Rfam assigns this 88-nucleotide sequence to the family "chrB-a RNA".
Rfam classes the family as a cis-regulatory element.
Pairs were carried over by alignment from the consensus structure, which is taken from published work.
Rfam 15.1 lists 347 matches to the family in 339 species.

RNA sequence: GGCAUGGGGUUAUCCGCGACGACCUCGUGAGGCGUAAGCCCAAUGAUCGCGUCCGAACGCCUCAACGCAUGAGGAAGGACGCGUUAUG
Number, nucleotide and partner (000 for none) at each position: 001g000002g000003c000004a000005u027006g026007g025008g024009g023010u022011u000012a000013u000014c000015c000016g000017c000018g000019a000020c000021g000022a010023c009024c008025u007026c006027g005028u000029g000030a000031g000032g000033c000034g000035u000036a000037a000038g000039c000040c000041c000042a000043a000044u000045g000046a000047u000048c000049g082050c081051g080052u079053c078054c077055g000056a000057a000058c000059g000060c000061c000062u000063c000064a000065a000066c000067g000068c000069a000070u000071g000072a000073g000074g000075a000076a000077g054078g053079a052080c051081g050082c049083g000084u000085u000086a000087u000088g000